[Rfam]
The family of this 78-nucleotide RNA from Petromyzon marinus is "mir-17 microRNA precursor family". Its family is annotated with RISC complex and miRNA-mediated post-transcriptional gene silencing in the Gene Ontology. The family's consensus secondary structure was predicted with RNAalifold. Rfam 15.1 lists 4,687 matches to the family in 648 species. It is one of the family's seed sequences.

RNA sequence: CCACAGGGUGCCAAAGUGCUUAUAGUGCAGGUAGUUGAUCUUAGUCUACUGCAUUUUGAGCACUUGUAGCACCAGGUG
Numbered sequence: 001c002c003a004c005a006g007g008g009u010g011c012c013a014a015a016g017u018g019c020u021u022a023u024a025g026u027g028c029a030g031g032u033a034g035u036u037g038a039u040c041u042u043a044g045u046c047u048a049c050u051g052c053a054u055u056u057u058g059a060g061c062a063c064u065u066g067u068a069g070c071a072c073c074a075g076g077u078g
Stems, first nucleotide, its partner, number of pairs: 007073002010070002014065009024055005030050005